RNA: ALIL pseudoknot
Organism: Piscinibacter aquaticus
Nucleotides: 117
Base pairs, nucleotide, nucleotide: 016032017031018030019029020028079116080115081114082113089112090111092109093108094107095106096105098103
Number, partner (000 for none) and nucleotide at each position: 001000c002000g003000c004000g005000u006000a007000u008000u009000u010000c011000g012000c013000c014000c015000a016032g017031g018030c019029g020028g021000a022000g023000c024000u025000c026000g027000a028020c029019c030018g031017c032016c033000a034000c035000c036000a037000c038000a039000a040000g041000a042000a043000g044000u045000g046000a047000a048000c049000g050000c051000c052000u053000u054000c055000a056000u057000c058000g059000a060000c061000g062000a063000g064000c065000a066000u067000c068000g069000u070000g071000c072000u073000c074000g075000c076000c077000u078000g079116g080115g081114g082113g083000u084000c085000g086000a087000g088000u089112c090111g091000a092109u093108c094107u095106g096105c097000c098103g099000c100000g101000c102000g103098c104000u105096g106095c107094a108093g109092a110000u111090c112089g113082c114081c115080c116079c117000g